[Rfam]
RNA: U12 minor spliceosomal RNA
Organism: Apis mellifera
RNA sequence: GUGCCUUAAACUAAUGAGUAAGGAAAAUAUAGAGCUUUGGUAACGCUUAGCUAUGCUAAUUAUCAAGCGACCAUAUUUUUGAAGGGGCAAAGGUCGUCCCACGGUAACGCGACUACUUUUUCGCGUGGCCGGGUGAAGCGAUCUACCUC
Dot-bracket structure: ...(((((..........))))).........((((..(......)..)))).((((........))))..............((((...(((((((.((.((((..(((((........)))))..))))))....))))))).))))